[Rfam]
RNA sequence: CAGCCAGUAUCGUUUGUGAACUGGACUUAAUUUAUAUGGAAUUUCAUUUGCAAACGUGCAUGUCCGGUAUCCUGGAAAAAGGAAUUGGAACGGAGG
Number, nucleotide and partner (000 for none) at each position: 001c000002a027003g026004c024005c023006a022007g021008u020009a000010u019011c018012g000013u000014u000015u000016g000017u000018g011019a010020a008021c007022u006023g005024g004025a000026c003027u002028u000029a000030a000031u000032u000033u000034a000035u000036a000037u000038g000039g000040a000041a000042u000043u000044u000045c000046a000047u000048u000049u000050g000051c000052a000053a000054a000055c000056g000057u000058g000059c000060a000061u092062g091063u090064c088065c087066g086067g085068u084069a000070u083071c082072c081073u000074g000075g000076a000077a000078a000079a000080a000081g072082g071083a070084a068085u067086u066087g065088g064089a000090a063091c062092g061093g000094a000095g000096g000